[Rfam]
RNA sequence: UCCAAAGUAACAGUGAUGUUGUCUUUCCCAAGCACAUGUCUGAUUGCUCUGUGUAGAAAAUGACUGUUGCUGAGUGAUUUUGGG
Numbered sequence: 001u002c003c004a005a006a007g008u009a010a011c012a013g014u015g016a017u018g019u020u021g022u023c024u025u026u027c028c029c030a031a032g033c034a035c036a037u038g039u040c041u042g043a044u045u046g047c048u049c050u051g052u053g054u055a056g057a058a059a060a061u062g063a064c065u066g067u068u069g070c071u072g073a074g075u076g077a078u079u080u081u082g083g084g
Base pairs, nucleotide, nucleotide: 001084002083003082004081005080006079008077010075011074

The family of this 84-nucleotide RNA from Aegotheles bennettii is "Small nucleolar RNA SNORD121A". It is annotated as a C/D-box small nucleolar RNA.